The record is a 201-nucleotide RNA sequence from Salmonella enterica, which matches "isrO Hfq binding RNA" in Rfam. The literature on the family includes a 2008 paper in Nucleic Acids Res by Padalon-Brauch et al., "Small RNAs encoded within genetic islands of Salmonella typhimurium show host-induced expression and role in virulence". It is one of the family's seed sequences.

RNA sequence: AUGCCCAAUCCAUUGACGCCGGAAAGGGUCCGUGUGGAUGAUGAUGCCGCGAAUAUCCGAUAUGCCAGCAUAAUAUCGAAUCACGGCACAAUAGCGCUCGUCUGCGUUCUGUCAGGGCCUGUUUUGGUAAUGCCUUUCUUUCUGUUAUGCGCUACGCUGAUCGUCUGAGUAUAUGGCCUGGCCAUGCUGCCGGGUCAUUUU
Numbered sequence: 001a002u003g004c005c006c007a008a009u010c011c012a013u014u015g016a017c018g019c020c021g022g023a024a025a026g027g028g029u030c031c032g033u034g035u036g037g038a039u040g041a042u043g044a045u046g047c048c049g050c051g052a053a054u055a056u057c058c059g060a061u062a063u064g065c066c067a068g069c070a071u072a073a074u075a076u077c078g079a080a081u082c083a084c085g086g087c088a089c090a091a092u093a094g095c096g097c098u099c100g101u102c103u104g105c106g107u108u109c110u111g112u113c114a115g116g117g118c119c120u121g122u123u124u125u126g127g128u129a130a131u132g133c134c135u136u137u138c139u140u141u142c143u144g145u146u147a148u149g150c151g152c153u154a155c156g157c158u159g160a161u162c163g164u165c166u167g168a169g170u171a172u173a174u175g176g177c178c179u180g181g182c183c184a185u186g187c188u189g190c191c192g193g194g195u196c197a198u199u200u201u
Base pairs, nucleotide, nucleotide: 001172002171003170004169006167007166015165016164017163018128019127020126021125022124023123024122026120027119028118029117030116031115032107033106034105035104036103037102038101039100040099041098042090043089045088046087047086048085049084051082052081058078059077060076061075062074063073144161145160146159147158149157150156151155173198174197175196176195177194178193179192180191181190182189